[Rfam]
RNA sequence: UACCACAUCAAAGUUGAUUGGGAAACUCAUCAAUUAUAUAUGAAAUGCCGAGACAAGCUCAGUCGUCCGAUGGCGGGCCCCAUCCCAUUAGGGAGGCUUUAAAGCCCAGGCGGAUUACAAAGGUCGGCGAGCACUCAAAUCCUGUCAUCCGGAGUUUCAUCGCAUCCUUUGAUGUGGAUUUUAUA
Number, nucleotide and partner (000 for none) at each position: 001u000002a000003c000004c000005a000006c000007a000008u000009c000010a000011a000012a000013g000014u000015u000016g000017a000018u000019u000020g000021g000022g000023a000024a000025a000026c000027u000028c000029a000030u000031c000032a000033a000034u000035u000036a000037u000038a000039u000040a000041u000042g000043a000044a000045a000046u000047g000048c000049c000050g000051a000052g000053a000054c000055a000056a000057g132058c131059u130060c000061a000062g128063u127064c126065g125066u000067c123068c122069g000070a000071u119072g118073g000074c000075g000076g000077g000078c113079c112080c000081c110082a000083u000084c093085c092086c091087a000088u000089u000090a000091g086092g085093g084094a000095g000096g105097c104098u103099u000100u000101a000102a000103a098104g097105c096106c000107c000108a000109g000110g081111c000112g079113g078114a000115u000116u000117a000118c072119a071120a000121a000122g068123g067124u000125c065126g064127g063128c062129g000130a059131g058132c057133a000134c000135u000136c000137a000138a000139a000140u000141c000142c000143u000144g000145u000146c000147a000148u000149c000150c000151g000152g000153a000154g000155u000156u000157u000158c000159a000160u000161c000162g000163c000164a000165u000166c000167c000168u000169u000170u000171g000172a000173u000174g000175u000176g000177g000178a000179u000180u000181u000182u000183a000184u000185a000
RNA: Bacteroidales-1 6S-Bacteroidales RNA suggested